[Rfam]
RNA: HDV ribozyme from F. prausnitzii
Organism: Teladorsagia circumcincta
Nucleotides: 072
Stems, first nucleotide, its partner, number of pairs: 001041007022034003048060005
Number, partner (000 for none) and nucleotide at each position: 001041c002040u003039c004038c005037c006036a007035c008000a009000a010000a011000u012000c013000c014000u015000a016000u017000c018000c019000g020000u021000g022034g023033c024032c025000u026000c027000a028000a029000c030000g031000u032024g033023g034022c035007g036006u037005g038004g039003g040002a041001g042000u043000g044000g045000c046000a047000a048060c049059g050058g051057c052056c053000u054000u055000u056052g057051g058050c059049c060048g061000g062000c063000u064000a065000a066000u067000g068000c069000g070000a071000a072000g